Background
The record is an 83-nucleotide RNA sequence from Manduca sexta, which matches "mir-981 microRNA precursor family" in Rfam. NCBI's taxonomy places the organism under Eukaryota, Metazoa, Protostomia, Obtectomera, Manduca. Gene Ontology terms of the family: RISC complex and miRNA-mediated post-transcriptional gene silencing.

[Rfam]
RNA sequence: CCGCACAUGAUUCGGGUUUCGAGACGAUGAAACCGUGAUUAAAUUAAAUGGUUCGUUGUCGACGAAACCUGCAAAAUGUGCGG
Numbered sequence: 001c002c003g004c005a006c007a008u009g010a011u012u013c014g015g016g017u018u019u020c021g022a023g024a025c026g027a028u029g030a031a032a033c034c035g036u037g038a039u040u041a042a043a044u045u046a047a048a049u050g051g052u053u054c055g056u057u058g059u060c061g062a063c064g065a066a067a068c069c070u071g072c073a074a075a076a077u078g079u080g081c082g083g
Base pairs, nucleotide, nucleotide: 001083002082003081004080005079006078013071014070015069016068017067018066019065020064021063031053032052033051034050
On this family, see Legeai et al., BMC Genomics 2010: "Bioinformatic prediction, deep sequencing of microRNAs and expression analysis during phenotypic plasticity in the pea aphid, Acyrthosiphon pisum".